[Rfam]
RNA sequence: GGUUCGGGAGCGGCCGGUGGGACGGACCGCAGGAAUGGAACCUUAUCCCCCUCAUCGCGAGCGGCGCGCCACCGGGGCCCGACGGUGGAUGCG
Numbered sequence: 001g002g003u004u005c006g007g008g009a010g011c012g013g014c015c016g017g018u019g020g021g022a023c024g025g026a027c028c029g030c031a032g033g034a035a036u037g038g039a040a041c042c043u044u045a046u047c048c049c050c051c052u053c054a055u056c057g058c059g060a061g062c063g064g065c066g067c068g069c070c071a072c073c074g075g076g077g078c079c080c081g082a083c084g085g086u087g088g089a090u091g092c093g
Stems, first nucleotide, its partner, number of pairs: 001042005010030004014025003065093004070087005